[Rfam]
The family of this 154-nucleotide RNA sequence from Amborella trichopoda is "MIR8565 microRNA precursor family". The base pairs follow the family's consensus structure, which was predicted with RNAalifold.

RNA sequence: CCCACACCCAUGUGUGUAGGACCCCAAAGGAUCACCAUUAAAUAUGACACGGAUCUUUAGAAAAGUUAUCAUAAGAGUGUGGGACUUGACUGUUCUAGAGAUCUGUGUCCUAUUUAAUGGUGAUCUUUUGGGGUCCUACACACAUGGGUGAGGG
Numbered sequence: 001c002c003c004a005c006a007c008c009c010a011u012g013u014g015u016g017u018a019g020g021a022c023c024c025c026a027a028a029g030g031a032u033c034a035c036c037a038u039u040a041a042a043u044a045u046g047a048c049a050c051g052g053a054u055c056u057u058u059a060g061a062a063a064a065g066u067u068a069u070c071a072u073a074a075g076a077g078u079g080u081g082g083g084a085c086u087u088g089a090c091u092g093u094u095c096u097a098g099a100g101a102u103c104u105g106u107g108u109c110c111u112a113u114u115u116a117a118u119g120g121u122g123a124u125c126u127u128u129u130g131g132g133g134u135c136c137u138a139c140a141c142a143c144a145u146g147g148g149u150g151a152g153g154g
Base pairs, nucleotide, nucleotide: 002153003152005150006149007148008147009146010145011144012143013142015140016139017138018137019136020135021134022133023132024131025130026129027128028127030125031124032123034121035120036119037118038117039116040115041114042113043112044111046109047108048107049106050105051104052103053102054101055100056099057098058097059096060095061094062093064091065090066089067088068087069082070081071080072079073078